[Rfam]
RNA: MAT2A 3'UTR stem loop E
Organism: Heterocephalus glaber
RNA sequence: ACAGCAUCCCCAGGUAGGCCAAGGUGUCCUACAGAAAAACUUUGGCCUAGACCUACAGGAGGUCUGC
Number, nucleotide and partner (000 for none) at each position: 001a000002c066003a065004g064005c000006a063007u062008c061009c000010c059011c058012a000013g000014g056015u055016a054017g053018g052019c045020c044021a043022a042023g041024g040025u039026g032027u031028c000029c000030u000031a027032c026033a000034g000035a000036a000037a000038a000039a025040c024041u023042u022043u021044g020045g019046c000047c000048u000049a000050g000051a000052c018053c017054u016055a015056c014057a000058g011059g010060a000061g008062g007063u006064c004065u003066g002067c000